This 67-nucleotide RNA sequence from Tessaracoccus flavus belongs to the Rfam family "Actino-pnp RNA". It scores 59 bits against the family's covariance model. Taxonomically the source falls in Tessaracoccus (Bacteria, Bacillati, Actinomycetes, Propionibacteriales). Rfam classes the family as a cis-regulatory element.
[Rfam]
RNA sequence: UCUGGUCCUCGGUAGUGGUUUUCGGGUGCCGAACACGGUCCCCCGCGAGCCUCGAUCGAAGACCGGC
Numbered sequence: 001u002c003u004g005g006u007c008c009u010c011g012g013u014a015g016u017g018g019u020u021u022u023c024g025g026g027u028g029c030c031g032a033a034c035a036c037g038g039u040c041c042c043c044c045g046c047g048a049g050c051c052u053c054g055a056u057c058g059a060a061g062a063c064c065g066g067c
Stems, first nucleotide, its partner, number of pairs: 002066006009059005017051005023045004028041001